[Rfam]
The family of this 104-nucleotide RNA sequence from Paraburkholderia steynii is "SAM-I/IV (S-adenosyl methionine) riboswitch aptamer". It scores 59 bits against the family's covariance model. Rfam links the family to the GO terms S-adenosylmethionine metabolic process and regulation of gene expression. Clan: SAM clan. The base pairs follow the family's consensus structure, which is taken from published work.

RNA sequence: CCGGUUCAUCUUGAAUUGGGUCGACGCCCAUGCCAACCUGCCCGCCCCGGCAAGGUGGAUCGCGAAAGCGGAUGUGGCUCAGCAGAGCAACCAAAGGGUGACGC
Numbered sequence: 001c002c003g004g005u006u007c008a009u010c011u012u013g014a015a016u017u018g019g020g021u022c023g024a025c026g027c028c029c030a031u032g033c034c035a036a037c038c039u040g041c042c043c044g045c046c047c048c049g050g051c052a053a054g055g056u057g058g059a060u061c062g063c064g065a066a067a068g069c070g071g072a073u074g075u076g077g078c079u080c081a082g083c084a085g086a087g088c089a090a091c092c093a094a095a096g097g098g099u100g101a102c103g104c
Base pairs, nucleotide, nucleotide: 007074008073009072010071015031017030018029019028020027021026033058034057037055038054039053040051041050042049046098047097048096077088078087079086080085